[Rfam]
RNA sequence: UUCUUAGACCUGUGCAAUGCCGUUUAUGAGCACCGCUUCAGGGUGGGAACACAGCAGAGCACUUGUUUAUGGUGUGUGCCGCAGUUAUCUG
Number, nucleotide and partner (000 for none) at each position: 001u000002u000003c000004u000005u091006a090007g089008a088009c000010c084011u083012g082013u081014g080015c076016a000017a075018u074019g073020c072021c071022g070023u000024u000025u000026a066027u065028g064029a063030g062031c000032a000033c000034c000035g060036c059037u058038u057039c000040a000041g000042g000043g052044u051045g050046g000047g000048a000049a000050c045051a044052c043053a000054g000055c000056a000057g038058a037059g036060c035061a000062c030063u029064u028065g027066u026067u000068u000069a000070u022071g021072g020073u019074g018075u017076g015077u000078g000079c000080c014081g013082c012083a011084g010085u000086u000087a000088u008089c007090u006091g005